Record summary: MIR6135 microRNA precursor family: a 122-nucleotide RNA sequence from Panax ginseng.
[Rfam]
RNA sequence: AUGAAUUUUAUUUUUGAGUAAGUUGGUCAAUUGGCUAAUAGAAUGCUGACACACAUAGAGCUUCGCCAGCGUGUCAGCACUCUAUUGAUCAAAUGACUAAUUUACUCAAAAAUGAACUUCAU
Numbered sequence: 001a002u003g004a005a006u007u008u009u010a011u012u013u014u015u016g017a018g019u020a021a022g023u024u025g026g027u028c029a030a031u032u033g034g035c036u037a038a039u040a041g042a043a044u045g046c047u048g049a050c051a052c053a054c055a056u057a058g059a060g061c062u063u064c065g066c067c068a069g070c071g072u073g074u075c076a077g078c079a080c081u082c083u084a085u086u087g088a089u090c091a092a093a094u095g096a097c098u099a100a101u102u103u104a105c106u107c108a109a110a111a112a113u114g115a116a117c118u119u120c121a122u
Stems, first nucleotide, its partner, number of pairs: 001122005007116002011112004018105012031092004036087007044079002047076003051072002054069001
NCBI's taxonomy places the organism under Eukaryota, Embryophyta, Tracheophyta, Spermatophyta, Panax.